Background:
mir-1275 microRNA precursor family: a 78-nucleotide sequence from Homo sapiens. The family's consensus secondary structure was predicted with RNAalifold. It is one of the family's seed sequences. Taxonomically the source falls in Homo (Eukaryota, Opisthokonta, Mammalia, Euarchontoglires). Rfam links the family to the GO terms miRNA-mediated post-transcriptional gene silencing and RISC complex. The literature on the family includes a 2009 paper in Comput Biol Chem by Baev et al., "Computational identification of novel microRNA homologs in the chimpanzee genome".
RNA sequence: CCUCUGUGAGAAAGGGUGUGGGGGAGAGGCUGUCUUGUGUCUGUAAGUAUGCCAAACUUAUUUUCCCCAAGGCAGAGG
Numbered sequence: 001c002c003u004c005u006g007u008g009a010g011a012a013a014g015g016g017u018g019u020g021g022g023g024g025a026g027a028g029g030c031u032g033u034c035u036u037g038u039g040u041c042u043g044u045a046a047g048u049a050u051g052c053c054a055a056a057c058u059u060a061u062u063u064u065c066c067c068c069a070a071g072g073c074a075g076a077g078g
Stems, first nucleotide, its partner, number of pairs: 001078007019069009028053003034047004